Shown here is a 54-nucleotide RNA sequence from Hucho hucho, a member of the family "UnaL2 LINE 3' element".
RNA sequence: GAAGGCACUAACUGUAAGUCGCUCUGGAUAAGAGCAUCUGCUAAAUAACCUAAA
Numbered sequence: 001g002a003a004g005g006c007a008c009u010a011a012c013u014g015u016a017a018g019u020c021g022c023u024c025u026g027g028a029u030a031a032g033a034g035c036a037u038c039u040g041c042u043a044a045a046u047a048a049c050c051u052a053a054a
Base pairs, nucleotide, nucleotide: 013043014041015040016039021035022034023033024032025031
Rfam links the family to the GO term transposition, RNA-mediated. A search with the family's covariance model found it, with a score of 58 bits.